Background: The record is a 60-nucleotide RNA sequence from Brachyspira innocens, which matches "Streptococcus sRNA SpF59 (ldcC RNA)" in Rfam. A reference for the family is Mann et al. (2012), "Control of virulence by small RNAs in Streptococcus pneumoniae", PLoS Pathog. The organism belongs to Brachyspira innocens, within Bacteria.
Nucleotides: 060
Stems, first nucleotide, its partner, number of pairs: 001052005006026002010022004
Number, partner (000 for none) and nucleotide at each position: 001052u002051g003050a004049c005048c006026u007025u008000a009000a010022c011021c012020u013019u014000c015000a016000c017000a018000a019013a020012a021011g022010g023000g024000g025007a026006a027000a028000a029000g030000a031000g032000g033000c034000c035000a036000u037000a038000c039000g040000g041000a042000c043000a044000g045000c046000c047000g048005g049004g050003u051002c052001a053000a054000a055000a056000g057000c058000c059000g060000a